Record summary
Shown here is a 73-nucleotide RNA from Antrihabitans auranticaus, a member of the family "hya RNA".
RNA sequence: AACGCCACACAAGAGGGCCGAAAAUCGACUCCGGUGGCGCAGGGACCCCAGCCCAAGUCCCGGAAGGCAGCCA
Numbered sequence: 001a002a003c004g005c006c007a008c009a010c011a012a013g014a015g016g017g018c019c020g021a022a023a024a025u026c027g028a029c030u031c032c033g034g035u036g037g038c039g040c041a042g043g044g045a046c047c048c049c050a051g052c053c054c055a056a057g058u059c060c061c062g063g064a065a066g067g068c069a070g071c072c073a
Base pairs, nucleotide, nucleotide: 003039004038005037006036007035008034042061043060044059045058046057

It scores 68 bits against the family's covariance model.